[Rfam]
RNA: U5 spliceosomal RNA
Organism: Betta splendens
RNA sequence: ACUCUUGUUUCUCUUCAGAUCGUACAAAUCUUUCGCCUUUUACUAAAGAUUUCCGUGGAGAGGAACAACAAGAGUAAUCCCAUUUUUUGUCACCCUGCGUUGUGGGGC
Numbered sequence: 001a002c003u004c005u006u007g008u009u010u011c012u013c014u015u016c017a018g019a020u021c022g023u024a025c026a027a028a029u030c031u032u033u034c035g036c037c038u039u040u041u042a043c044u045a046a047a048g049a050u051u052u053c054c055g056u057g058g059a060g061a062g063g064a065a066c067a068a069c070a071a072g073a074g075u076a077a078u079c080c081c082a083u084u085u086u087u088u089g090u091c092a093c094c095c096u097g098c099g100u101u102g103u104g105g106g107g108c
Stems, first nucleotide, its partner, number of pairs: 003073004007066011026052008097108002